A member of the RNA family "U1 spliceosomal RNA" from Nannospalax galili, 162 nucleotides long. Taxonomically the source falls in Nannospalax (Eukaryota, Sarcopterygii, Dipnotetrapodomorpha, Spalacidae). A search with the family's covariance model found it, with a score of 86 bits. By type it is a spliceosomal small nuclear RNA.
RNA sequence: AUAUUUAACUGGUAGGUGAGCUACCAAAAUCACGAAGGUGGUUUUCCUAGGGUGAAGCUCAUCCAUUGUACUCUGGAUAUGCUGAACUCUGUGAUUUCCUUAAAUGUGGAAACUUGAGAGCAUACUUGUGGUUAUGGGGGACUGCAUUCAUGUUCUUCCCUU
Numbered sequence: 001a002u003a004u005u006u007a008a009c010u011g012g013u014a015g016g017u018g019a020g021c022u023a024c025c026a027a028a029a030u031c032a033c034g035a036a037g038g039u040g041g042u043u044u045u046c047c048u049a050g051g052g053u054g055a056a057g058c059u060c061a062u063c064c065a066u067u068g069u070a071c072u073c074u075g076g077a078u079a080u081g082c083u084g085a086a087c088u089c090u091g092u093g094a095u096u097u098c099c100u101u102a103a104a105u106g107u108g109g110a111a112a113c114u115u116g117a118g119a120g121c122a123u124a125c126u127u128g129u130g131g132u133u134a135u136g137g138g139g140g141a142c143u144g145c146a147u148u149c150a151u152g153u154u155c156u157u158c159c160c161u162u
Stems, first nucleotide, its partner, number of pairs: 012121002016048001018046003023042004049090004056083003061078004092116003095112003099109002136161006144153003